This 70-nucleotide RNA from Nocardiopsis eucommiae belongs to the Rfam family "Actino-pnp RNA".
The base pairs follow the family's consensus structure, which is taken from published work.
Taxonomically the source falls in Nocardiopsis (Bacteria, Actinomycetes, Streptosporangiales, Nocardiopsidaceae).

RNA sequence: GUCGGUCCUCGGUAGUGGUCUCCGGACAUCGCCCGUACGGGCGGGCCGUGGGCUUCGAUCGAUGACCGAC
Numbered sequence: 001g002u003c004g005g006u007c008c009u010c011g012g013u014a015g016u017g018g019u020c021u022c023c024g025g026a027c028a029u030c031g032c033c034c035g036u037a038c039g040g041g042c043g044g045g046c047c048g049u050g051g052g053c054u055u056c057g058a059u060c061g062a063u064g065a066c067c068g069a070c
Stems, first nucleotide, its partner, number of pairs: 001070007009062005017054005023048003030044001
A search with the family's covariance model found it, with a score of 65 bits.